[Rfam]
RNA sequence: CCUGGCGGUGCUGUAGCAGCACAGAAUGGUUUGUGAGUUAUACGGGGGUGCAGGCCGUACUGUGCUGCGGCAGUAACCUCAGG
Numbered sequence: 001c002c003u004g005g006c007g008g009u010g011c012u013g014u015a016g017c018a019g020c021a022c023a024g025a026a027u028g029g030u031u032u033g034u035g036a037g038u039u040a041u042a043c044g045g046g047g048g049u050g051c052a053g054g055c056c057g058u059a060c061u062g063u064g065c066u067g068c069g070g071c072a073g074u075a076a077c078c079u080c081a082g083g
Stems, first nucleotide, its partner, number of pairs: 001083005013071002016068009026058010